[Rfam]
RNA sequence: AGUUGGAUGCAACCAAUGGCUCAUCGAAAUUGGCUUGCUGCAUUGGAUCCAAAUAUCCGGUCGGGCUUGCCAUGAUGAGUGAAAAAGUCCUCGUAGAGCUUAGCCACUGAAGGAAGAGGUAUGCGGCUUCAGCAUUCUGUGAAGUUGAAGACACCCAUCCGCUAAUACUGUAGUGUAAGAUCGAACGGCGGUUGAUGUGGUCACCGUGCUUCCGACCAAUCGGGUUG
Dot-bracket structure: .(.(.((((.(.((...)).))))).)..(.((.((.(.((...........(((....((.(((((..(..........)....).....((((...(((..((......))..)))...))))))).).))....)))...)).)..))..)).)..(((....(((((.......(((((.....)))))...)))))....)))...)(((((.....)))))

About this RNA:
Ruegeria cis90 sRNA: a 227-nucleotide sequence from Cognatishimia maritima. The literature on the family includes a 2016 paper in Front Microbiol by Rivers et al., "Experimental Identification of Small Non-Coding RNAs in the Model Marine Bacterium Ruegeria pomeroyi DSS-3". The match comes from Rfam's covariance-model search (70 bits). Pairs were carried over by alignment from the consensus structure, which was predicted with RNAfold.